[Rfam]
RNA sequence: GGAUGAGAUGAUGAUUAUUGUCAAAAUCUUGACUGCUGCUAUGAUGGCAUUACAAGUAUUCGUACUGACUGAUCAUUC
Numbered sequence: 001g002g003a004u005g006a007g008a009u010g011a012u013g014a015u016u017a018u019u020g021u022c023a024a025a026a027u028c029u030u031g032a033c034u035g036c037u038g039c040u041a042u043g044a045u046g047g048c049a050u051u052a053c054a055a056g057u058a059u060u061c062g063u064a065c066u067g068a069c070u071g072a073u074c075a076u077u078c
Stems, first nucleotide, its partner, number of pairs: 002077004031051001034049004